[Rfam]
The record is a 104-nucleotide RNA sequence from Catellicoccus marimammalium, which matches "23S methyl RNA motif" in Rfam.

RNA sequence: AUCCCAUCUUUUUAUUUUUCAUCCUGUUCAAAUAAAAGGAUAGGAUAACCUCAGCGUAAACGUAUCAACUUGCAGUGAUGAACACCGAGUUGCUACGUUUUUUU
Numbered sequence: 001a002u003c004c005c006a007u008c009u010u011u012u013u014a015u016u017u018u019u020c021a022u023c024c025u026g027u028u029c030a031a032a033u034a035a036a037a038g039g040a041u042a043g044g045a046u047a048a049c050c051u052c053a054g055c056g057u058a059a060a061c062g063u064a065u066c067a068a069c070u071u072g073c074a075g076u077g078a079u080g081a082a083c084a085c086c087g088a089g090u091u092g093c094u095a096c097g098u099u100u101u102u103u104u
Base pairs, nucleotide, nucleotide: 001046002045003044004043006041007040008039009038010037011036012035013034014033015032016031017030059099060098061097062096063095064094066092067091068090069089070088071087072086075085076084077083
Description:
A reference for the family is Weinberg et al. (2007), "Identification of 22 candidate structured RNAs in bacteria using the CMfinder comparative genomics pipeline", Nucleic Acids Res. Gene Ontology term of the family: regulation of gene expression. A search with the family's covariance model found it, with a score of 60 bits. By type it is a cis-regulatory element.